[Rfam]
RNA sequence: CGUGAAAAAGGCAAACCAAUCGUGAGGUUGGGACGCAAAGCCAUGGGGCUUCGGAAAUACCGAAGCUCGCCAGGUCACCAUGU
Numbered sequence: 001c002g003u004g005a006a007a008a009a010g011g012c013a014a015a016c017c018a019a020u021c022g023u024g025a026g027g028u029u030g031g032g033a034c035g036c037a038a039a040g041c042c043a044u045g046g047g048g049c050u051u052c053g054g055a056a057a058u059a060c061c062g063a064a065g066c067u068c069g070c071c072a073g074g075u076c077a078c079c080a081u082g083u
Stems, first nucleotide, its partner, number of pairs: 003080002011036002016031006034069001040075003044072003047067005
Record summary
Rfam assigns this 83-nucleotide RNA from Candidatus Kuenenia stuttgartensis to the family "c-di-GMP-I-GGC riboswitch aptamer". A search with the family's covariance model found it, with a score of 63 bits.